Shown here is a 138-nucleotide RNA sequence from Fukomys damarensis, a member of the family "Small Cajal body specific RNA 21".
For this family Rfam cites "Cajal body-specific small nuclear RNAs: a novel class of 2'-O-methylation and pseudouridylation guide RNAs" (Darzacq et al., EMBO J, 2002).
Its family is annotated with nucleolus, RNA processing and Cajal body in the Gene Ontology.
The match comes from Rfam's covariance-model search (136 bits).
Rfam describes the family as follows. scaRNAs are a specific class of small nuclear RNAs which localise to the Cajal bodies and guide the modification of RNA polymerase II transcribed spliceosomal RNAs U1, U2, U4, U5 and U12. ACA68 (SCARNA21) is a member of the H/ACA class of snoRNAs that guide the sites of modification of uridines to pseudouridines. This snoRNA was identified by computational screening and its expression in mouse experimentally verified by Northern blot and primer extension analysis.

RNA sequence: UGGCUUGGUUUCCUGGGAGGUGGGCUCAGCCUAUUCCACCUCCCCUCAGCCAAGCCUAGAGUAGAAGCCUGGCAUCCUCCUUCAUGGGAGAGGUAGUUGAGGAAAGAUCCUCUCCUGGGCUGGCCUAGCCUCACACUU
Numbered sequence: 001u002g003g004c005u006u007g008g009u010u011u012c013c014u015g016g017g018a019g020g021u022g023g024g025c026u027c028a029g030c031c032u033a034u035u036c037c038a039c040c041u042c043c044c045c046u047c048a049g050c051c052a053a054g055c056c057u058a059g060a061g062u063a064g065a066a067g068c069c070u071g072g073c074a075u076c077c078u079c080c081u082u083c084a085u086g087g088g089a090g091a092g093g094u095a096g097u098u099g100a101g102g103a104a105a106g107a108u109c110c111u112c113u114c115c116u117g118g119g120c121u122g123g124c125c126u127a128g129c130c131u132c133a134c135a136c137u138u
Stems, first nucleotide, its partner, number of pairs: 002056006015044010064132002067129002071125002076119003086111003

Description
The source organism's lineage runs through Eukaryota, Metazoa, Theria, Eutheria and Fukomys. It is annotated as a small Cajal body RNA.